[Rfam]
RNA sequence: UGGAUCGAUGGUGAUCCAUGCCAGCGUAUGGGUCAUCACUUAUGAAUAAUACAUGUCUGGAACUCUGAGGUCCAA
Numbered sequence: 001u002g003g004a005u006c007g008a009u010g011g012u013g014a015u016c017c018a019u020g021c022c023a024g025c026g027u028a029u030g031g032g033u034c035a036u037c038a039c040u041u042a043u044g045a046a047u048a049a050u051a052c053a054u055g056u057c058u059g060g061a062a063c064u065c066u067g068a069g070g071u072c073c074a075a
Stems, first nucleotide, its partner, number of pairs: 002073005
Rfam assigns this 75-nucleotide sequence from Capra hircus to the family "Small nucleolar RNA SNORD113/SNORD114 family".
It is annotated as a C/D-box small nucleolar RNA.
Rfam's curators write: The imprinted human domain at 14q32 contains two clusters of tandemly repeated small nucleolar RNAs named 14q(I) and 14q(II) snoRNAs. These two clusters are named SNORD113 and SNORD114 respectively in the HGNC approved gene symbol nomenclature. The snoRNAs found in both clusters are clearly related and are represented here by a single family. These snoRNAs are intron encoded and are processed from the tissue-specific non-coding human MEG8 RNA, which lies downstream of the imprinted genes DLK1 and GTL2. snoRNAs 14q(I) and 14q(II) differ from previously identified C/D box snoRNAs in their expression profiles and lack of complementarity to rRNA and snRNA. Homologues of these snoRNAs are found in the imprinted non-coding mouse transcript Rian, and in the rat non-coding Bsr (brain-specific repetitive) RNA.
Clan: SNORD74 clan.